[Rfam]
RNA sequence: GGUUUCUGUUGGUGCAAAUCCAAUCUUUGAGAUGAAAAUCAAUUCUCCAUUGGUAGCAAAAGGUUAUCCAUUAAGCGGGGAAA
Numbered sequence: 001g002g003u004u005u006c007u008g009u010u011g012g013u014g015c016a017a018a019u020c021c022a023a024u025c026u027u028u029g030a031g032a033u034g035a036a037a038a039u040c041a042a043u044u045c046u047c048c049a050u051u052g053g054u055a056g057c058a059a060a061a062g063g064u065u066a067u068c069c070a071u072u073a074a075g076c077g078g079g080g081a082a083a
Stems, first nucleotide, its partner, number of pairs: 009023004045080004049071002052068006

This 83-nucleotide RNA sequence from Epipremnum aureum belongs to the Rfam family "Plastid-rps12 3UTR RNA". Rfam's curators write: Plastid rpl20 is a non-coding RNA (ncRNA) recognised in plastids. It was found in the three prime untranslated region (3UTR) of rps12 gene, its 3UTR location sugest a role in transcript maduration. It is annotated as a cis-regulatory element. The source organism's lineage runs through Eukaryota, Euphyllophyta, Mesangiospermae, Alismatales and Epipremnum. Rfam's curators put it in the seed alignment.